RNA sequence: GUUGCUUCUUACUGGUGAACGCUCUCAGAUUUUCAGUGAGGGACGUUCAUGUUUCCGAAGCAUAGAUUAAUUCAUUUUUAGCCAAUUUUAAACAGCGCUGUGCGUUUAUUUACUUGCAAGCAUUGCGCUACCUGUCUCCUGGUAUAUUU
Numbered sequence: 001g002u003u004g005c006u007u008c009u010u011a012c013u014g015g016u017g018a019a020c021g022c023u024c025u026c027a028g029a030u031u032u033u034c035a036g037u038g039a040g041g042g043a044c045g046u047u048c049a050u051g052u053u054u055c056c057g058a059a060g061c062a063u064a065g066a067u068u069a070a071u072u073c074a075u076u077u078u079u080a081g082c083c084a085a086u087u088u089u090a091a092a093c094a095g096c097g098c099u100g101u102g103c104g105u106u107u108a109u110u111u112a113c114u115u116g117c118a119a120g121c122a123u124u125g126c127g128c129u130a131c132c133u134g135u136c137u138c139c140u141g142g143u144a145u146a147u148u149u
Base pairs, nucleotide, nucleotide: 003062004061005060006059007058008057016049017048018047019046020045022042023041024040025039081143082142083141084140094129095128096127098125100123101122102121